[Rfam]
RNA sequence: GAUGGUUUGAAAGAGCUUCCUUCAGUCCACUCAUGGACGGUUUUAGGGUUUGAAUUAUCUGCCGAUUCAUUCAUUCAAACACUCAGUAGAAAAUGGGUGCAAGCAGCGGCUCAGGACAUGGGUGGGAGAUGGCGAGCAGCGGCAGUACUGCUGUGUGAAUGAACGAAUGAGGCGGGAGAUUAUUCCAUUCCUUUGCUCCCAUGCUUGGACUGAAGGGAGCUCCCUCUUUCUCUUUC
Numbered sequence: 001g002a003u004g005g006u007u008u009g010a011a012a013g014a015g016c017u018u019c020c021u022u023c024a025g026u027c028c029a030c031u032c033a034u035g036g037a038c039g040g041u042u043u044u045a046g047g048g049u050u051u052g053a054a055u056u057a058u059c060u061g062c063c064g065a066u067u068c069a070u071u072c073a074u075u076c077a078a079a080c081a082c083u084c085a086g087u088a089g090a091a092a093a094u095g096g097g098u099g100c101a102a103g104c105a106g107c108g109g110c111u112c113a114g115g116a117c118a119u120g121g122g123u124g125g126g127a128g129a130u131g132g133c134g135a136g137c138a139g140c141g142g143c144a145g146u147a148c149u150g151c152u153g154u155g156u157g158a159a160u161g162a163a164c165g166a167a168u169g170a171g172g173c174g175g176g177a178g179a180u181u182a183u184u185c186c187a188u189u190c191c192u193u194u195g196c197u198c199c200c201a202u203g204c205u206u207g208g209a210c211u212g213a214a215g216g217g218a219g220c221u222c223c224c225u226c227u228u229u230c231u232c233u234u235u236c
Stems, first nucleotide, its partner, number of pairs: 013222008023212007036199001059178002062175003068169004076161001
Dot-bracket structure: ............((((((((..(((((((......(......................((.(((...((((....(....................................................................................)....))))...))).))....................)......)))))))..))))))))..............